The record is a 73-nucleotide sequence from Orthoflavivirus denguei, which matches "Flavivirus DB element" in Rfam. NCBI's taxonomy places the organism under Viruses, Riboviria, Orthornavirae, Flaviviridae, Dengue virus. For this family Rfam cites "Control of translation by the 5'- and 3'-terminal regions of the dengue virus genome" (Chiu et al., J Virol, 2005). This family represents the flavivirus 3' UTR elements DB1 and DB2. The base pairs follow the family's consensus structure, which is taken from published work.
[Rfam]
Nucleotides: 073
Base pairs, nucleotide, nucleotide: 003066004065005064006063007042008041012036013035014034015033016032017031019029049062050061051060052059
Number, partner (000 for none) and nucleotide at each position: 001000u002000u003066g004065g005064g006063g007042c008041c009000c010000a011000a012036g013035g014034u015033g016032u017031g018000u019029u020000g021000a022000a023000g024000c025000u026000g027000u028000a029019g030000c031017c032016a033015c034014a035013c036012u037000g038000g039000a040000a041008g042007g043000a044000c045000c046000a047000g048000a049062g050061g051060u052059u053000a054000g055000a056000g057000g058000a059052g060051a061050c062049c063006c064005c065004c066003c067000c068000a069000g070000a071000c072000a073000a